[Rfam]
RNA sequence: GGAAUAUAAGACACCGUCUUUUAACUUGUAACUAAAAAGGCUAAGAGCCGGUUUUUAAAUAUCUUAUUUAUGAGCCGGUUUUUAGUUUUUUUAGUUAAAAAUUAAGAGACGAUUUAUUAUAUUCC
Dot-bracket structure: (((((((((.(.(.((((((((((.((.(((((((((((.(((((((...............................))))))).))))))))))).)).)))))))))).).).)))))))))
Shown here is a 125-nucleotide RNA from Brassica rapa, a member of the family "MIR9563 microRNA precursor family". Taxonomically the source falls in Brassica (Eukaryota, Streptophyta, Streptophytina, Euphyllophyta). The base pairs follow the family's consensus structure, which was predicted with RNAalifold. The family has 2 seed sequences and 5,832 matches in Rfam 15.1. Gene Ontology terms of the family: miRNA-mediated post-transcriptional gene silencing and RISC complex.